[Rfam]
RNA sequence: AUUUGUUACAAGUCCUGAUAGGAUUCACCAAAUUGGUGAAGAUGCCUUGUAACCGUGUAGCUAGUCUAUAGGGGGACACAUAUAGAUG
Dot-bracket structure: ...........(((((...(((.(((((.......)))))....))).....((................)))))))...........
Rfam assigns this 88-nucleotide RNA from Lactobacillus delbrueckii to the family "SAM-III riboswitch aptamer (SMK box)". Pairs were carried over by alignment from the consensus structure, which is taken from published work. The sequence is in the family's curated seed alignment. The literature on the family includes a 2006 paper in Nat Struct Mol Biol by Fuchs et al., "The S(MK) box is a new SAM-binding RNA for translational regulation of SAM synthetase". Its family is annotated with regulation of translational initiation and methionine adenosyltransferase activity in the Gene Ontology.